[Rfam]
The record is an 85-nucleotide RNA sequence from Mesobacillus foraminis, which matches "c-di-GMP-I riboswitch aptamer" in Rfam.
RNA sequence: AUCAUGUCAGGGCAAAUUCAUUGAAAGAUGAAGACGCAAAACUAUAGGGACUAAAGUCGCGAGACAAUGUCAGCCAGUUACCAAU
Dot-bracket structure: ...........((...((((((....))))))...))..((((...(((((....(((....)))...)))..))))))......
From the family's description: GEMM was predicted in a large-scale screen for bacterial structured RNA regulatory elements.